[Rfam]
The family of this 300-nucleotide sequence from Betacoronavirus gravedinis is "Betacoronavirus 5'UTR". The family is grouped with related families in Rfam's "Coronavirus 5' UTR". By type it is a cis-regulatory element. Taxonomically the source falls in Betacoronavirus 1 (Viruses, Orthornavirae, Cornidovirineae, Embecovirus). Its family is annotated with viral RNA genome replication in the Gene Ontology.
RNA sequence: AUUGUGAGCGAUUUGCGUGCGUGCAUCCCGCUUCACUGAUCUCUUGUUAGAUCUUUUUGUAAUCUAAACUUUAUAAAAACAUCCACUCCCUGUAAUCUAUGCUUGUGGGCGUAGAUUUUUCAUAGUGGUGUUUAUAUUCAUUUCUGCUGUUAACAGCUUUCAGCCAGGGACGUGUUGUAUCCUAGGCAGUGGCCCGCCCAUAGGUCACAAUGUCGAAGAUCAACAAAUACGGUCUCGAACUACACUGGGCUCCAGAAUUUCCAUGGAUGUUUGAGGACGCAGAGGAGAAGUUGGAUAACC
Numbered sequence: 001a002u003u004g005u006g007a008g009c010g011a012u013u014u015g016c017g018u019g020c021g022u023g024c025a026u027c028c029c030g031c032u033u034c035a036c037u038g039a040u041c042u043c044u045u046g047u048u049a050g051a052u053c054u055u056u057u058u059g060u061a062a063u064c065u066a067a068a069c070u071u072u073a074u075a076a077a078a079a080c081a082u083c084c085a086c087u088c089c090c091u092g093u094a095a096u097c098u099a100u101g102c103u104u105g106u107g108g109g110c111g112u113a114g115a116u117u118u119u120u121c122a123u124a125g126u127g128g129u130g131u132u133u134a135u136a137u138u139c140a141u142u143u144c145u146g147c148u149g150u151u152a153a154c155a156g157c158u159u160u161c162a163g164c165c166a167g168g169g170a171c172g173u174g175u176u177g178u179a180u181c182c183u184a185g186g187c188a189g190u191g192g193c194c195c196g197c198c199c200a201u202a203g204g205u206c207a208c209a210a211u212g213u214c215g216a217a218g219a220u221c222a223a224c225a226a227a228u229a230c231g232g233u234c235u236c237g238a239a240c241u242a243c244a245c246u247g248g249g250c251u252c253c254a255g256a257a258u259u260u261c262c263a264u265g266g267a268u269g270u271u272u273g274a275g276g277a278c279g280c281a282g283a284g285g286a287g288a289a290g291u292u293g294g295a296u297a298a299c300c
Stems, first nucleotide, its partner, number of pairs: 006033005013025001038053005083128005092120001095116009174187003198212001202211001228254001231251004236247002

The first 150 to 200 nucleotides within the 5' UTR of betacoronaviruses are highly structured and shown to be conserved on a structure level among betacoronaviruses. It has been predicted to contain 3 conserved stem-loops (SL1, SL2 and SL4).